[Rfam]
The family of this 56-nucleotide RNA sequence is "L31-Actinobacteria ribosomal protein leader". The family is grouped with related families in Rfam's "Ribosomal Protein L31 Leader clan". A reference for the family is Eckert and Weinberg (2020), "Discovery of 20 novel ribosomal leader candidates in bacteria and archaea", BMC Microbiol.
RNA sequence: CUGGUUCCGGUUCACGACCCCGCUGAAGACAGCACCGAGGGGACGACCCGGCGACC
Numbered sequence: 001c002u003g004g005u006u007c008c009g010g011u012u013c014a015c016g017a018c019c020c021c022g023c024u025g026a027a028g029a030c031a032g033c034a035c036c037g038a039g040g041g042g043a044c045g046a047c048c049c050g051g052c053g054a055c056c
Base pairs, nucleotide, nucleotide: 003056004055005054007051008050009049010048015045016044018042019041020040021039